Shown here is a 170-nucleotide RNA from Medicago truncatula, a member of the family "MIR2619 microRNA precursor family". The source organism's lineage runs through Eukaryota, Magnoliopsida, Mesangiospermae, Fabales and Medicago. Pairs were carried over by alignment from the consensus structure, which was predicted with RNAalifold.

RNA sequence: AAACAACUUAUACUUUUUGAUUCUUUGGUAGUUUUGAAUCCUGAAGGCAAAAUAAAAAUAAAAAAUUUGACAUGUGGCACCUCACUUAGGGUGCCACGUCAGCGUUGACCGAGUCAACACUGGACUAGGGGUUCAAAACUGCCAAAGAAUCAAAACAUAGGUGGCUGUUU
Numbered sequence: 001a002a003a004c005a006a007c008u009u010a011u012a013c014u015u016u017u018u019g020a021u022u023c024u025u026u027g028g029u030a031g032u033u034u035u036g037a038a039u040c041c042u043g044a045a046g047g048c049a050a051a052a053u054a055a056a057a058a059u060a061a062a063a064a065a066u067u068u069g070a071c072a073u074g075u076g077g078c079a080c081c082u083c084a085c086u087u088a089g090g091g092u093g094c095c096a097c098g099u100c101a102g103c104g105u106u107g108a109c110c111g112a113g114u115c116a117a118c119a120c121u122g123g124a125c126u127a128g129g130g131g132u133u134c135a136a137a138a139c140u141g142c143c144a145a146a147g148a149a150u151c152a153a154a155a156c157a158u159a160g161g162u163g164g165c166u167g168u169u170u
Stems, first nucleotide, its partner, number of pairs: 001170002004167002007164002011159002015155028044126001072099002075096007